[Rfam]
A member of the RNA family "Wolbachia sRNA 46" from Trichomalopsis sarcophagae, 138 nucleotides long.
The family has 3 seed sequences and 237 matches in Rfam 15.1.
The family's RNA type in Rfam is small RNA.
The organism belongs to Trichomalopsis, within Eukaryota.
RNA sequence: UAUGACGGCAGUGCCCAGAGGUGUCAUCCCAGUGCCCAGACACUGGGAUCCAGAAAACUUAACUUUAAAUAAGUGGCUGCAUAAUAAAGACUAGAUUCCAGUGUCACGCACUGGCAUGACACCAUAGAGGCACUGGGA
Numbered sequence: 001u002a003u004g005a006c007g008g009c010a011g012u013g014c015c016c017a018g019a020g021g022u023g024u025c026a027u028c029c030c031a032g033u034g035c036c037c038a039g040a041c042a043c044u045g046g047g048a049u050c051c052a053g054a055a056a057a058c059u060u061a062a063c064u065u066u067a068a069a070u071a072a073g074u075g076g077c078u079g080c081a082u083a084a085u086a087a088a089g090a091c092u093a094g095a096u097u098c099c100a101g102u103g104u105c106a107c108g109c110a111c112u113g114g115c116a117u118g119a120c121a122c123c124a125u126a127g128a129g130g131c132a133c134u135g136g137g138a
Stems, first nucleotide, its partner, number of pairs: 011133005022121006029114007039105012052092002